[Rfam]
RNA: ffh sRNA
Organism: Rhodothalassium salexigens
RNA sequence: GCGCCCGAGGGUGCCCACCAGUCAGCGAGGUUUCGCCCACUGGUGCCAUUGGU
Numbered sequence: 001g002c003g004c005c006c007g008a009g010g011g012u013g014c015c016c017a018c019c020a021g022u023c024a025g026c027g028a029g030g031u032u033u034c035g036c037c038c039a040c041u042g043g044u045g046c047c048a049u050u051g052g053u
Base pairs, nucleotide, nucleotide: 016045017044018043019042020041021040022039025036026035027034028033